[Rfam]
RNA: TPP riboswitch aptamer (THI element)
Organism: Litorihabitans aurantiacus
RNA sequence: GGGACCGAGCACGGGAGUCCAGUGAGCUGGGCUGAGAGGGAGUUCUCCAACUCCGACCGUCGAACCUGAUCCGGAUCAUGCCGGCGCAGGAAGCUACGCGUGACGACCG
Numbered sequence: 001g002g003g004a005c006c007g008a009g010c011a012c013g014g015g016a017g018u019c020c021a022g023u024g025a026g027c028u029g030g031g032c033u034g035a036g037a038g039g040g041a042g043u044u045c046u047c048c049a050a051c052u053c054c055g056a057c058c059g060u061c062g063a064a065c066c067u068g069a070u071c072c073g074g075a076u077c078a079u080g081c082c083g084g085c086g087c088a089g090g091a092a093g094c095u096a097c098g099c100g101u102g103a104c105g106a107c108c109g
Stems, first nucleotide, its partner, number of pairs: 008095003011060004017032005039054005065090004071084004